RNA sequence: GGGGGUCAACCCAGGCCAGGGAACUCGGCAAACUAGCCCCGUAACUUCGGGAGAAGGGGUGCCUGCGGUCCUCGGCUAAAACCGGGGUCCGCAGGUCGCAGUGACAAGGGGGACCUGACUGUUUAACAAAAACAUAGCUCCCCGCUAGCCCGAAAGGGUGUGUACGGGGGGUGAAUCCUGGCCACUGGUGGUACGUGAAACCCGGGUACAACCGGGCGAAGCGCCACUGAAGGCCGGGGGUAACCCUGACCCUCUUAAGGUAGCCAAAUGCCUUGUCGGGUAAGUUCCGACGCGCAUGAACGGAUCAACGAGGUCCCCGCUGUCCCGGCCUGGGGCCCCGCGAACCCACUGGGUGGGUGCACAGCCCCACAU
Dot-bracket structure: ((((.....((((((((.(((..............(((((....(....).....)))))((((((((....................))))))))(...).......(((((((((..(((.........)))..(((((((((..((((....))))..)..))))))))..((((.(((..(((((((..(((....(((((......)))))....))))))))..)))))((((((.......))))))(...)...............((((((.....))))))..........))))...)).)))))))....))).)))))))).)))).............(((((........)))))..
Numbered sequence: 001g002g003g004g005g006u007c008a009a010c011c012c013a014g015g016c017c018a019g020g021g022a023a024c025u026c027g028g029c030a031a032a033c034u035a036g037c038c039c040c041g042u043a044a045c046u047u048c049g050g051g052a053g054a055a056g057g058g059g060u061g062c063c064u065g066c067g068g069u070c071c072u073c074g075g076c077u078a079a080a081a082c083c084g085g086g087g088u089c090c091g092c093a094g095g096u097c098g099c100a101g102u103g104a105c106a107a108g109g110g111g112g113a114c115c116u117g118a119c120u121g122u123u124u125a126a127c128a129a130a131a132a133c134a135u136a137g138c139u140c141c142c143c144g145c146u147a148g149c150c151c152g153a154a155a156g157g158g159u160g161u162g163u164a165c166g167g168g169g170g171g172u173g174a175a176u177c178c179u180g181g182c183c184a185c186u187g188g189u190g191g192u193a194c195g196u197g198a199a200a201c202c203c204g205g206g207u208a209c210a211a212c213c214g215g216g217c218g219a220a221g222c223g224c225c226a227c228u229g230a231a232g233g234c235c236g237g238g239g240g241u242a243a244c245c246c247u248g249a250c251c252c253u254c255u256u257a258a259g260g261u262a263g264c265c266a267a268a269u270g271c272c273u274u275g276u277c278g279g280g281u282a283a284g285u286u287c288c289g290a291c292g293c294g295c296a297u298g299a300a301c302g303g304a305u306c307a308a309c310g311a312g313g314u315c316c317c318c319g320c321u322g323u324c325c326c327g328g329c330c331u332g333g334g335g336c337c338c339c340g341c342g343a344a345c346c347c348a349c350u351g352g353g354u355g356g357g358u359g360c361a362c363a364g365c366c367c368c369a370c371a372u
Stems, first nucleotide, its partner, number of pairs: 001339004010334008019325003036060005045050001061096008097101001109318007116310002120134003137172008145162001148159004175305004180235003185232002187228005194223003201216005236254006255259001275291006353370005